RNA sequence: CGCUUGAGCCCUACGUGGGCGUUUCCUCCCUAAACUUGGGCCAUCUGAAAAACGGUGGCCCUUUUUUAUUUUUCAC
Dot-bracket structure: .......((((.....)))).................((((((.(((.....)))))))))...............
RNA: Makes More Granules Regulator RNA (mmgR)
Organism: Emcibacter nanhaiensis